[Rfam]
RNA sequence: CUUAGUAUAUAAGCGCCAGCGCUUGUCAGGCGGUCGCCGGAUCGGAAUCAGGGCGUAUCGUUAUCUGGGUAGGGCAAGCGGACGAGGUAGAGGUGUUCGAAAUAUUCGGCGGGGACCUCUCGGCAGCCGCAUCAGGCCGAAAGCGGGAAGGCAAAAGGUUCGGGCAACCGGGCUGACAAGAUUUCCGCAUGAUGCAUU
Numbered sequence: 001c002u003u004a005g006u007a008u009a010u011a012a013g014c015g016c017c018a019g020c021g022c023u024u025g026u027c028a029g030g031c032g033g034u035c036g037c038c039g040g041a042u043c044g045g046a047a048u049c050a051g052g053g054c055g056u057a058u059c060g061u062u063a064u065c066u067g068g069g070u071a072g073g074g075c076a077a078g079c080g081g082a083c084g085a086g087g088u089a090g091a092g093g094u095g096u097u098c099g100a101a102a103u104a105u106u107c108g109g110c111g112g113g114g115a116c117c118u119c120u121c122g123g124c125a126g127c128c129g130c131a132u133c134a135g136g137c138c139g140a141a142a143g144c145g146g147g148a149a150g151g152c153a154a155a156a157g158g159u160u161c162g163g164g165c166a167a168c169c170g171g172g173c174u175g176a177c178a179a180g181a182u183u184u185c186c187g188c189a190u191g192a193u194g195c196a197u198u
Base pairs, nucleotide, nucleotide: 020080021079022078023077024076025075026074027073089120090119091118092117093116097109098108099107100106121139122138123137124136126133143188144187145186146185147184148183149182157174158173159172160171161170162169163168

A member of the RNA family "glmS glucosamine-6-phosphate activated ribozyme aptamer" from Paenibacillus ginsengarvi, 198 nucleotides long. The source organism's lineage runs through Bacteria, Bacillota, Bacilli, Caryophanales and Paenibacillus. Rfam links the family to the GO terms regulation of gene expression and catalytic activity.